[Rfam]
RNA sequence: AAACAAUGUAAAGCGCCAGAACUAAGAAUUCUUAGUUGACGAGGAUGGGGAGUUAUCGAGACUUCGGCGGGUGCCCCACGGUAUCGCACUACCGUUAACAGCUAGCAAAACUAUGGAGAGAUUCGUAGGACAAAUCUAGCUUGGUGUUAAAG
Numbered sequence: 001a002a003a004c005a006a007u008g009u010a011a012a013g014c015g016c017c018a019g020a021a022c023u024a025a026g027a028a029u030u031c032u033u034a035g036u037u038g039a040c041g042a043g044g045a046u047g048g049g050g051a052g053u054u055a056u057c058g059a060g061a062c063u064u065c066g067g068c069g070g071g072u073g074c075c076c077c078a079c080g081g082u083a084u085c086g087c088a089c090u091a092c093c094g095u096u097a098a099c100a101g102c103u104a105g106c107a108a109a110a111c112u113a114u115g116g117a118g119a120g121a122u123u124c125g126u127a128g129g130a131c132a133a134a135u136c137u138a139g140c141u142u143g144g145u146g147u148u149a150a151a152g
Base pairs, nucleotide, nucleotide: 020037021036022035023034024033025032026031046078047077048076049075050074056067057066058065059064079094080093081092082091083090100141101140102139103138104137111128112127113126114125115124116123117122
RNA: glmS glucosamine-6-phosphate activated ribozyme aptamer
Organism: Clostridium thermobutyricum